[Rfam]
RNA sequence: UUUCCCCGGACGGUCCGGGGCGCAGACGAGGGCGGGGGACCCAACACCGGGCGCGACAGCGUCCUGGGGUGAAGCCGGGGAGACCCGGCCGGGCACCUGACAGCUCGAACCCGACAGCUCACCUCGCAGGCGUUCGUCAGGGAAGGA
Dot-bracket structure: (...........................)..((((((....((.....................))(((.....((((......))))..((((........))))...))).........))))))....................
The record is a 147-nucleotide RNA sequence from Barrientosiimonas humi, which matches "c-di-AMP riboswitch aptamer (ydaO/yuaA leader)" in Rfam. The pairing is the family consensus, mapped onto this sequence. The match comes from Rfam's covariance-model search (52 bits). Lineage of the source: Bacteria > Bacillati > Actinomycetota > Dermacoccaceae > Barrientosiimonas.